[Rfam]
RNA sequence: ACUCGUUCGCUCAGCUUUCGACAUGAUUCUGAACAAUCCGCAAGCCCAUGUUGUUGAGAUCAUUAGUUGAAAGCCGAAUGAUCAGAGA
Numbered sequence: 001a002c003u004c005g006u007u008c009g010c011u012c013a014g015c016u017u018u019c020g021a022c023a024u025g026a027u028u029c030u031g032a033a034c035a036a037u038c039c040g041c042a043a044g045c046c047c048a049u050g051u052u053g054u055u056g057a058g059a060u061c062a063u064u065a066g067u068u069g070a071a072a073g074c075c076g077a078a079u080g081a082u083c084a085g086a087g088a
Base pairs, nucleotide, nucleotide: 002087003086004085007081008080009079011077012076014074015073016072017071018070019069020068021067022066023063024062025061026060027059029058030057032055033054034053035052036051037050
The family of this 88-nucleotide RNA sequence from Caenorhabditis elegans is "mir-80 microRNA precursor family". The organism belongs to Caenorhabditis, within Eukaryota. Gene Ontology terms of the family: RISC complex and miRNA-mediated post-transcriptional gene silencing. The family has 4 seed sequences and 8 matches in Rfam 15.1.